[Rfam]
Nucleotides: 097
Stems, first nucleotide, its partner, number of pairs: 020081001022079004029047006056073006
Number, partner (000 for none) and nucleotide at each position: 001000u002000u003000u004000u005000u006000u007000u008000u009000g010000c011000a012000u013000a014000a015000u016000a017000a018000c019000g020081g021000a022079g023078g024077u025076a026000u027000a028000a029047g030046u031045c032044u033043g034042c035000a036000a037000a038000a039000c040000g041000g042034g043033c044032a045031g046030a047029c048000g049000u050000c051000u052000c053000u054000a055000c056073c057072a058071a059070c060069c061068g062000c063000c064000a065000a066000a067000c068061u069060g070059g071058u072057u073056g074000a075000c076025u077024a078023c079022c080000g081020c082000a083000u084000g085000u086000g087000u088000a089000g090000u091000c092000a093000g094000c095000u096000u097000u